[Rfam]
Shown here is a 386-nucleotide RNA from Halapricum desulfuricans, a member of the family "Archaeal RNase P". Its family is annotated with ribonuclease P activity, tRNA processing and multimeric ribonuclease P complex in the Gene Ontology. By type it is a ribozyme. Rfam's curators write: Ribonuclease P (RNase P) is a ubiquitous endoribonuclease, found in archaea, bacteria and eukarya as well as chloroplasts and mitochondria. Its best characterised activity is the generation of mature 5'-ends of tRNAs by cleaving the 5'-leader elements of precursor-tRNAs. Cellular RNase Ps are ribonucleoproteins. RNA from bacterial RNase Ps retains its catalytic activity in the absence of the protein subunit, i.e. it is a ribozyme. A reference for the family is Frank and Pace (1998), "Ribonuclease P: unity and diversity in a tRNA processing ribozyme", Annu Rev Biochem. The organism belongs to Halapricum, within Archaea.

RNA sequence: GGCAGCGGGAGCCCGGUUCCCGUGCCCGAGACUGCGUUCCGCAGAACGGGCAUGAGGAAAGUCCCCCCACCGACCGGGCAGGUGACCGGGUGCAAACCCGGAGCGGGAGACCGCUGGCACUGGAACAGAAACGAGACCGCUCUGCUCGACUAAUGAGGCGUGCGAACCCCGACUGACGAAGGUCGGGUCGACUGCCGGACGAAAGCCCGGCAGGGUGACCUGCCGAGAAAGGAACGGGGAGUUGACCCGCCGAAGGCCGACAGCAGAGAACGGAUGGAACGGCGAAUCCUCACCGGUGCAAGUCCGCGCCACAAGGUAGCCCGGACGCGGCGCGGACGCUCAGCCGAAUGCCGGGCCGAACAGAAGGGGGCUUACUCCCCGCAGCC
Numbered sequence: 001g002g003c004a005g006c007g008g009g010a011g012c013c014c015g016g017u018u019c020c021c022g023u024g025c026c027c028g029a030g031a032c033u034g035c036g037u038u039c040c041g042c043a044g045a046a047c048g049g050g051c052a053u054g055a056g057g058a059a060a061g062u063c064c065c066c067c068c069a070c071c072g073a074c075c076g077g078g079c080a081g082g083u084g085a086c087c088g089g090g091u092g093c094a095a096a097c098c099c100g101g102a103g104c105g106g107g108a109g110a111c112c113g114c115u116g117g118c119a120c121u122g123g124a125a126c127a128g129a130a131a132c133g134a135g136a137c138c139g140c141u142c143u144g145c146u147c148g149a150c151u152a153a154u155g156a157g158g159c160g161u162g163c164g165a166a167c168c169c170c171g172a173c174u175g176a177c178g179a180a181g182g183u184c185g186g187g188u189c190g191a192c193u194g195c196c197g198g199a200c201g202a203a204a205g206c207c208c209g210g211c212a213g214g215g216u217g218a219c220c221u222g223c224c225g226a227g228a229a230a231g232g233a234a235c236g237g238g239g240a241g242u243u244g245a246c247c248c249g250c251c252g253a254a255g256g257c258c259g260a261c262a263g264c265a266g267a268g269a270a271c272g273g274a275u276g277g278a279a280c281g282g283c284g285a286a287u288c289c290u291c292a293c294c295g296g297u298g299c300a301a302g303u304c305c306g307c308g309c310c311a312c313a314a315g316g317u318a319g320c321c322c323g324g325a326c327g328c329g330g331c332g333c334g335g336a337c338g339c340u341c342a343g344c345c346g347a348a349u350g351c352c353g354g355g356c357c358g359a360a361c362a363g364a365a366g367g368g369g370g371c372u373u374a375c376u377c378c379c380c381g382c383a384g385c386c
Stems, first nucleotide, its partner, number of pairs: 001386003005382005010376002012355006021054008059373003063370005068298004074324005081294005086101005102115005116289002121285001123283001137273003140268007158250002302337009